Rfam assigns this 348-nucleotide sequence from Anabas testudineus to the family "Vertebrate telomerase RNA".
The base pairs follow the family's consensus structure, which is taken from published work.
The literature on the family includes a 2000 paper in Cell by Chen et al., "Secondary structure of vertebrate telomerase RNA".
The family is grouped with related families in Rfam's "Telomerase clan".
From the family's description: Telomerase is a ribonucleoprotein reverse transcriptase that synthesises telomeric DNA. Telomerase RNAs differ greatly in sequence and structure between vertebrates, ciliates and yeasts, but they share a 5' pseudoknot structure close to the template sequence. Vertebrate telomerase RNAs have a 3' H/ACA snoRNA-like domain.
Rfam links the family to the GO terms telomere maintenance via telomerase, telomerase catalytic core complex and telomerase activity.
[Rfam]
RNA sequence: GGUUUGUCGGGGUGUUCUUUCUAACCCUAAGUGAGGGUGUCCUCCUGUACUCAUCGUUUGUUGUUUUUCCGUCUCUGGCUUUCAGCAAACUACAGGAGGUAUUUUCAAGUAGCGUUCAUGGCGUCUAGGAACCAAAAAAAGCGCAGAGAAUCACUCCGUCGUGUUCAGUUUCCCGUCAGAAACAUCGUGAAUUAGCGCCGCGGUCAGCCUGGCUGCCGCGAAGAGUUGGUCUCUGCUGCUCCGGUGUGUUCGUGUCGGGAUCCACAGAAACUGAGCAGAUUAAACUGAGCAGGGCUCCUGAACCGAACCUAGCAGUGGUCCGGGACGGAGGCCCGAGCUCAAACAAUC
Numbered sequence: 001g002g003u004u005u006g007u008c009g010g011g012g013u014g015u016u017c018u019u020u021c022u023a024a025c026c027c028u029a030a031g032u033g034a035g036g037g038u039g040u041c042c043u044c045c046u047g048u049a050c051u052c053a054u055c056g057u058u059u060g061u062u063g064u065u066u067u068u069c070c071g072u073c074u075c076u077g078g079c080u081u082u083c084a085g086c087a088a089a090c091u092a093c094a095g096g097a098g099g100u101a102u103u104u105u106c107a108a109g110u111a112g113c114g115u116u117c118a119u120g121g122c123g124u125c126u127a128g129g130a131a132c133c134a135a136a137a138a139a140a141g142c143g144c145a146g147a148g149a150a151u152c153a154c155u156c157c158g159u160c161g162u163g164u165u166c167a168g169u170u171u172c173c174c175g176u177c178a179g180a181a182a183c184a185u186c187g188u189g190a191a192u193u194a195g196c197g198c199c200g201c202g203g204u205c206a207g208c209c210u211g212g213c214u215g216c217c218g219c220g221a222a223g224a225g226u227u228g229g230u231c232u233c234u235g236c237u238g239c240u241c242c243g244g245u246g247u248g249u250u251c252g253u254g255u256c257g258g259g260a261u262c263c264a265c266a267g268a269a270a271c272u273g274a275g276c277a278g279a280u281u282a283a284a285c286u287g288a289g290c291a292g293g294g295c296u297c298c299u300g301a302a303c304c305g306a307a308c309c310u311a312g313c314a315g316u317g318g319u320c321c322g323g324g325a326c327g328g329a330g331g332c333c334c335g336a337g338c339u340c341a342a343a344c345a346a347u348c
Base pairs, nucleotide, nucleotide: 005161006160008158009157010156011155012154013153014152015150016149017148018147041099042098043097044096045095056090057089058088059087060086061085062084063083075143078142079141080139081138082137164275165274166273167272168271169270170269171260172259173258174257175256177254178253182247183246184245185244186243187242199220200219201218202217203216205215206214207213208212222234223233224232225231287340288339289338290337292334293333294332295331296330298328303323304322305321308318309317